RNA sequence: CACAGAUCAAUGACAGCAGAACCCCAAACCCCACAGGUGUGGGGGGGAUUCUGCCUGACCCCCUCCUGUG
Numbered sequence: 001c002a003c004a005g006a007u008c009a010a011u012g013a014c015a016g017c018a019g020a021a022c023c024c025c026a027a028a029c030c031c032c033a034c035a036g037g038u039g040u041g042g043g044g045g046g047g048a049u050u051c052u053g054c055c056u057g058a059c060c061c062c063c064u065c066c067u068g069u070g
Base pairs, nucleotide, nucleotide: 001070002069003068004067005066016054017053018052019051020050021049023047024046030039032037
Rfam assigns this 70-nucleotide RNA sequence from Sylvietta virens to the family "Selenocysteine insertion sequence 1". The family's consensus secondary structure is taken from published work. By type it is a cis-regulatory element. On this family, see Walczak et al., RNA 1996: "A novel RNA structural motif in the selenocysteine insertion element of eukaryotic selenoprotein mRNAs". The family has 61 seed sequences and 3,793 matches in Rfam 15.1.